[Rfam]
Record summary: S4-Clostridia ribosomal protein leader: a 54-nucleotide sequence. It is one of the family's seed sequences.
RNA sequence: GAAAGGCUGUAUGAACAUACAGCUGGGUGUCAUGCACUUGACGCCCCAGUUAGA
Numbered sequence: 001g002a003a004a005g006g007c008u009g010u011a012u013g014a015a016c017a018u019a020c021a022g023c024u025g026g027g028u029g030u031c032a033u034g035c036a037c038u039u040g041a042c043g044c045c046c047c048a049g050u051u052a053g054a
Stems, first nucleotide, its partner, number of pairs: 005024008025046007